[Rfam]
RNA sequence: GUGGGUGGAUGCGGUGAGGCCUCGGUCCGCAAGUCCAGCCCUGGCGCACCUUCCCCGGCGCCAGGUUUGGCAGGCGGGCUGAGACCUGAUCGCAUCCGCGAUCGAGU
Numbered sequence: 001g002u003g004g005g006u007g008g009a010u011g012c013g014g015u016g017a018g019g020c021c022u023c024g025g026u027c028c029g030c031a032a033g034u035c036c037a038g039c040c041c042u043g044g045c046g047c048a049c050c051u052u053c054c055c056c057g058g059c060g061c062c063a064g065g066u067u068u069g070g071c072a073g074g075c076g077g078g079c080u081g082a083g084a085c086c087u088g089a090u091c092g093c094a095u096c097c098g099c100g101a102u103c104g105a106g107u
Base pairs, nucleotide, nucleotide: 010094011093012092013091014090015089018086019085021083022082023081024080025079026078027077028076029075030074033071035070036069037068038067040065041064042063043062044061045060046059047058